[Rfam]
This 85-nucleotide sequence from Piliocolobus tephrosceles belongs to the Rfam family "mir-633 microRNA precursor family".
RNA sequence: GCUUCUGUUUCUUUACUGUGGUAGAUACUAUUAGCCUAAAAUAAGAAGGCUAAUAGUAUCUACCACAAUAAAAUUGUUGUGAUAA
Numbered sequence: 001g002c003u004u005c006u007g008u009u010u011c012u013u014u015a016c017u018g019u020g021g022u023a024g025a026u027a028c029u030a031u032u033a034g035c036c037u038a039a040a041a042u043a044a045g046a047a048g049g050c051u052a053a054u055a056g057u058a059u060c061u062a063c064c065a066c067a068a069u070a071a072a073a074u075u076g077u078u079g080u081g082a083u084a085a
Stems, first nucleotide, its partner, number of pairs: 004082002012072004017067021

The base pairs follow the family's consensus structure, which was predicted with RNAalifold. Its family is annotated with RISC complex and miRNA-mediated post-transcriptional gene silencing in the Gene Ontology.